Streptomyces RNA 1601: a 223-nucleotide sequence from Streptomyces sp. SID5785. The match comes from Rfam's covariance-model search (172 bits). Taxonomically the source falls in Streptomyces (Bacteria, Bacillati, Actinomycetota, Streptomycetaceae). The family's RNA type in Rfam is small RNA. About the family: Identified by deep sequencing of transcriptome at the end of exponential growth phase. Appears longer on northern blot than sequencing transcript. Streptomyces specific. A reference for the family is Vockenhuber et al. (2011), "Deep sequencing-based identification of small non-coding RNAs in Streptomyces coelicolor", RNA Biol.
RNA sequence: AACGACCGGCCGGACGCCCACGUCCUCGUGACGAAGGUGACCGGCCCACAAGUGGAGGCUCCGAUCUCCCACCUGGCCGCCCUCAGGGCGGCGGGUCACCGGUCAGACGGCCACCAUCGUUCCGUACGGACGAUGGAGCCGUCCGAACAGCGCCCCGCGGUCCGCCGCGCGGUGUUCCGGUCAGUCUUGGAGCCCCGCGUGUGUACCGUCCGGGGCAUUUUUU
Numbered sequence: 001a002a003c004g005a006c007c008g009g010c011c012g013g014a015c016g017c018c019c020a021c022g023u024c025c026u027c028g029u030g031a032c033g034a035a036g037g038u039g040a041c042c043g044g045c046c047c048a049c050a051a052g053u054g055g056a057g058g059c060u061c062c063g064a065u066c067u068c069c070c071a072c073c074u075g076g077c078c079g080c081c082c083u084c085a086g087g088g089c090g091g092c093g094g095g096u097c098a099c100c101g102g103u104c105a106g107a108c109g110g111c112c113a114c115c116a117u118c119g120u121u122c123c124g125u126a127c128g129g130a131c132g133a134u135g136g137a138g139c140c141g142u143c144c145g146a147a148c149a150g151c152g153c154c155c156c157g158c159g160g161u162c163c164g165c166c167g168c169g170c171g172g173u174g175u176u177c178c179g180g181u182c183a184g185u186c187u188u189g190g191a192g193c194c195c196c197g198c199g200u201g202u203g204u205a206c207c208g209u210c211c212g213g214g215g216c217a218u219u220u221u222u223u
Stems, first nucleotide, its partner, number of pairs: 004104006012042002043097005049075002052072004056067002076092007106143005114136008152216006158208003166203002168199005174193005